[Rfam]
RNA: THF (Tetrahydrofolate) riboswitch aptamer
Organism: Congzhengia minquanensis
RNA sequence: AGCAGAGUAGGAACUGACGCGUUAAGUGGCAGGCGAACGGGAAGUUGUCGCCCGCACGAAAAGCAAUUUUGUUUUGCUUGCGGUGUCUUUUCCGCAUUCCGCUGCU
Numbered sequence: 001a002g003c004a005g006a007g008u009a010g011g012a013a014c015u016g017a018c019g020c021g022u023u024a025a026g027u028g029g030c031a032g033g034c035g036a037a038c039g040g041g042a043a044g045u046u047g048u049c050g051c052c053c054g055c056a057c058g059a060a061a062a063g064c065a066a067u068u069u070u071g072u073u074u075u076g077c078u079u080g081c082g083g084u085g086u087c088u089u090u091u092c093c094g095c096a097u098u099c100c101g102c103u104g105c106u
Stems, first nucleotide, its partner, number of pairs: 001106005010093004016087004020082003026057002029055002032052005040099003044095001061079006